Fluoride riboswitch aptamer (crcB RNA motif): a 63-nucleotide RNA sequence from Methylocystis echinoides. Lineage of the source: Bacteria > Pseudomonadota > Alphaproteobacteria > Hyphomicrobiales > Methylocystis. The base pairs follow the family's consensus structure, which is taken from published work.
[Rfam]
RNA sequence: CUGGGAUAAGGCGAUGGGGUUCGCCUUGUAACCGCCCUCGGGGCCGAUGACUCCUGCUUGCGA
Numbered sequence: 001c002u003g004g005g006a007u008a009a010g011g012c013g014a015u016g017g018g019g020u021u022c023g024c025c026u027u028g029u030a031a032c033c034g035c036c037c038u039c040g041g042g043g044c045c046g047a048u049g050a051c052u053c054c055u056g057c058u059u060g061c062g063a
Base pairs, nucleotide, nucleotide: 010025011024012023013022016054017053018052019051020050021049034044035043036042